A member of the RNA family "mir-221 microRNA precursor family" from Astyanax mexicanus, 84 nucleotides long. The base pairs follow the family's consensus structure, which was predicted with RNAalifold. On this family, see Yao et al., J Virol 2008: "MicroRNA profile of Marek's disease virus-transformed T-cell line MSB-1: predominance of virus-encoded microRNAs". It scores 68 bits against the family's covariance model.
RNA sequence: GUGGUUUUGUACCUGGCAUUCAGUGUAGAAAUCUGUGUUUGCGAACCUACAGCUACAUUGUCUGCUGGGUUUCAGAGCCGCCUU
Numbered sequence: 001g002u003g004g005u006u007u008u009g010u011a012c013c014u015g016g017c018a019u020u021c022a023g024u025g026u027a028g029a030a031a032u033c034u035g036u037g038u039u040u041g042c043g044a045a046c047c048u049a050c051a052g053c054u055a056c057a058u059u060g061u062c063u064g065c066u067g068g069g070u071u072u073c074a075g076a077g078c079c080g081c082c083u084u
Stems, first nucleotide, its partner, number of pairs: 013068006021060008033052004